RNA sequence: GAAAUAGAAGGAAAUGGUGUUCUUCCUUACCCAACCGCUUUCUAAAAGCUGAUGACGCCUGAUUAAUA
Numbered sequence: 001g002a003a004a005u006a007g008a009a010g011g012a013a014a015u016g017g018u019g020u021u022c023u024u025c026c027u028u029a030c031c032c033a034a035c036c037g038c039u040u041u042c043u044a045a046a047a048g049c050u051g052a053u054g055a056c057g058c059c060u061g062a063u064u065a066a067u068a
Stems, first nucleotide, its partner, number of pairs: 010026004016059006037049004
RNA: Fluoride riboswitch aptamer (crcB RNA motif)